Ribosomal protein L10 leader: a 123-nucleotide sequence from Thermoanaerobacter brockii. The source organism's lineage runs through Bacteria, Bacillota, Thermoanaerobacterales, Thermoanaerobacteraceae and Thermoanaerobacter brockii.

[Rfam]
RNA sequence: UGAAAUUGAAUAAAAAGACCGUAGACAGUGGGUGUGCUUUUGCACGUAAAUCCCACCGAGGUUUUUAGAAAUAAAUUCCCAAAAGGGAUCCUCGUGUCUACGGGAUCCUUUUUAAAUUUUUUA
Numbered sequence: 001u002g003a004a005a006u007u008g009a010a011u012a013a014a015a016a017g018a019c020c021g022u023a024g025a026c027a028g029u030g031g032g033u034g035u036g037c038u039u040u041u042g043c044a045c046g047u048a049a050a051u052c053c054c055a056c057c058g059a060g061g062u063u064u065u066u067a068g069a070a071a072u073a074a075a076u077u078c079c080c081a082a083a084a085g086g087g088a089u090c091c092u093c094g095u096g097u098c099u100a101c102g103g104g105a106u107c108c109u110u111u112u113u114a115a116a117u118u119u120u121u122u123a
Stems, first nucleotide, its partner, number of pairs: 028056005034045003086108006093102003
Its family is annotated with regulation of gene expression in the Gene Ontology. A reference for the family is Zengel and Lindahl (1994), "Diverse mechanisms for regulating ribosomal protein synthesis in Escherichia coli", Prog Nucleic Acid Res Mol Biol. Rfam's curators write: This family is a putative r-protein leader autoregulatory structure found in B. subtilis and other low-GC Gram-positive bacteria. It is located in the 5' untranslated regions of mRNAs encoding ribosomal proteins L10 and L12 (rplJ-rplL). A Rho-independent transcription terminator structure that is probably involved in regulation is included at the 3' end.